Shown here is a 95-nucleotide sequence from Peribacillus faecalis, a member of the family "pan motif".
Pairs were carried over by alignment from the consensus structure, which is taken from published work.
The match comes from Rfam's covariance-model search (61 bits).
By type it is a cis-regulatory element.
RNA sequence: UGGGCAGUAUCGACUACAGAACUGCACCUUGCAGGACAGUGAAGAAGUAUCAAUAAAAUAGUCUGCCUAGAUCCGCGUUGGACAAGGACAGAGGG
Numbered sequence: 001u002g003g004g005c006a007g008u009a010u011c012g013a014c015u016a017c018a019g020a021a022c023u024g025c026a027c028c029u030u031g032c033a034g035g036a037c038a039g040u041g042a043a044g045a046a047g048u049a050u051c052a053a054u055a056a057a058a059u060a061g062u063c064u065g066c067c068u069a070g071a072u073c074c075g076c077g078u079u080g081g082a083c084a085a086g087g088a089c090a091g092a093g094g095g
Stems, first nucleotide, its partner, number of pairs: 002028002004025005010020002063091003066087003070083001072082003